[Rfam]
RNA sequence: CCUUUGAUCCGGGCCCCUCUGACGGUUGGUCGCAACCGUGAUGUCGGAUUCUACCC
Numbered sequence: 001c002c003u004u005u006g007a008u009c010c011g012g013g014c015c016c017c018u019c020u021g022a023c024g025g026u027u028g029g030u031c032g033c034a035a036c037c038g039u040g041a042u043g044u045c046g047g048a049u050u051c052u053a054c055c056c
Base pairs, nucleotide, nucleotide: 006050007049008048009047010046011045012044022039023038024037025036026035027034028033
Rfam assigns this 56-nucleotide sequence from Elstera litoralis to the family "terC RNA". The organism belongs to Elstera, within Bacteria. The family has 129 seed sequences and 1,112 matches in Rfam 15.1.